[Rfam]
Shown here is a 129-nucleotide RNA from Branchiostoma floridae, a member of the family "U4atac minor spliceosomal RNA". By type it is a spliceosomal small nuclear RNA. Rfam links the family to the GO terms U4atac snRNP, pre-mRNA 5'-splice site binding and mRNA 5'-splice site recognition.
RNA sequence: ACCGUCUUUGUCAGGGGGUGAGCAAUUAUCCAAUGAACGCAAAGUGAGGGUAAUUCUGCUGACACCUGCACCAACACUUUACCGCGUCGCCUGCCGCUAGCCGGUGGGUCGGGCGCAAUUUUUGGGACC
Number, nucleotide and partner (000 for none) at each position: 001a000002c000003c000004g000005u000006c018007u017008u016009u015010g000011u000012c000013a000014g000015g009016g008017g007018g006019u000020g059021a000022g057023c000024a000025a054026u053027u052028a051029u050030c049031c048032a000033a000034u000035g000036a000037a045038c044039g000040c000041a000042a000043a000044g038045u037046g000047a000048g031049g030050g029051u028052a027053a026054u025055u000056c000057u022058g000059c020060u000061g000062a000063c000064a000065c000066c000067u000068g000069c000070a000071c000072c000073a000074a000075c000076a000077c000078u000079u000080u000081a000082c000083c000084g116085c115086g114087u113088c112089g000090c107091c106092u000093g000094c103095c000096g000097c000098u000099a000100g000101c000102c000103g094104g000105u000106g091107g090108g000109u000110c000111g000112g088113g087114c086115g085116c084117a000118a000119u000120u000121u000122u000123u000124g000125g000126g000127a000128c000129c000
Rfam's curators write: U4atac is an essential component of the minor U12-type spliceosome complex which is required for removal of the rarer class of eukaryotic introns (AT-AC, U12-type). Clan: U4 clan.